This 72-nucleotide RNA sequence from Rhinopomastus cyanomelas belongs to the Rfam family "Small nucleolar RNA SNORD63". It is annotated as a C/D-box small nucleolar RNA. On this family, see Galardi et al., Mol Cell Biol 2002: "Purified box C/D snoRNPs are able to reproduce site-specific 2'-O-methylation of target RNA in vitro". The family's consensus secondary structure was predicted with PFOLD.
[Rfam]
RNA sequence: GUGCCAUGAUGUUAACUGUCAACACAUCAUUCUGAAGAAGAAUUGUGUGGACACCUUCCAUAACUGAGCACU
Numbered sequence: 001g002u003g004c005c006a007u008g009a010u011g012u013u014a015a016c017u018g019u020c021a022a023c024a025c026a027u028c029a030u031u032c033u034g035a036a037g038a039a040g041a042a043u044u045g046u047g048u049g050g051a052c053a054c055c056u057u058c059c060a061u062a063a064c065u066g067a068g069c070a071c072u
Base pairs, nucleotide, nucleotide: 001071002070003069004068